[Rfam]
RNA sequence: AGGGUCUGGUAUGGAUCUUGGGGGGGACCCCACACCAAAAUGAAAAAAAAAAUGGCGUGGGGUCCCCCCAAGAUCCAUACCAGACCCUCUG
Numbered sequence: 001a002g003g004g005u006c007u008g009g010u011a012u013g014g015a016u017c018u019u020g021g022g023g024g025g026g027a028c029c030c031c032a033c034a035c036c037a038a039a040a041u042g043a044a045a046a047a048a049a050a051a052a053u054g055g056c057g058u059g060g061g062g063u064c065c066c067c068c069c070a071a072g073a074u075c076c077a078u079a080c081c082a083g084a085c086c087c088u089c090u091g
Stems, first nucleotide, its partner, number of pairs: 001090003005084005013076008022068004027063001030062002033059003
Shown here is a 91-nucleotide sequence from Aquarana catesbeiana, a member of the family "mir-541 microRNA precursor family".
On this family, see Sewer et al., BMC Bioinformatics 2005: "Identification of clustered microRNAs using an ab initio prediction method".
The base pairs follow the family's consensus structure, which was predicted with RNAalifold.
Lineage of the source: Eukaryota > Opisthokonta > Deuterostomia > Ranoidea > Aquarana.
Rfam links the family to the GO terms type B pancreatic cell development, negative regulation of gene expression and miRNA-mediated post-transcriptional gene silencing.